Shown here is a 91-nucleotide RNA from Vagococcus penaei, a member of the family "SAM-III riboswitch aptamer (SMK box)". The literature on the family includes a 2007 paper in Proc Natl Acad Sci U S A by Fuchs et al., "S-adenosylmethionine directly inhibits binding of 30S ribosomal subunits to the SMK box translational riboswitch RNA". The match comes from Rfam's covariance-model search (72 bits).
RNA sequence: GAAUGUUGCAAGAUUCCCGAUAGGAUUUACAUCUAUUUUUUUUGUAAAGAUGCCUUGUAACCGAAUAAAUAUCAGGGGGAAUAACCGAAUG
Numbered sequence: 001g002a003a004u005g006u007u008g009c010a011a012g013a014u015u016c017c018c019g020a021u022a023g024g025a026u027u028u029a030c031a032u033c034u035a036u037u038u039u040u041u042u043u044g045u046a047a048a049g050a051u052g053c054c055u056u057g058u059a060a061c062c063g064a065a066u067a068a069a070u071a072u073c074a075g076g077g078g079g080a081a082u083a084a085c086c087g088a089a090u091g
Stems, first nucleotide, its partner, number of pairs: 014081005022055003026048005061076002